Shown here is a 63-nucleotide sequence from Lactococcus garvieae, a member of the family "Streptococcus sRNA SpF59 (ldcC RNA)". Rfam's curators put it in the seed alignment. The organism belongs to Lactococcus garvieae, within Bacteria.
[Rfam]
RNA sequence: GACUCAUUUUUGUUAAAUUUCAACAAAAACUAAGGCCAUACGGACAGCCAGAGUCACAGCCGA
Number, nucleotide and partner (000 for none) at each position: 001g055002a054003c053004u052005c051006a000007u029008u028009u027010u026011u025012g024013u023014u022015a000016a000017a000018u000019u000020u000021c000022a014023a013024c012025a011026a010027a009028a008029a007030c000031u000032a000033a000034g000035g000036c000037c000038a000039u000040a000041c000042g000043g000044a000045c000046a000047g000048c000049c000050a000051g005052a004053g003054u002055c001056a000057c000058a000059g000060c000061c000062g000063a000

A reference for the family is Mann et al. (2012), "Control of virulence by small RNAs in Streptococcus pneumoniae", PLoS Pathog.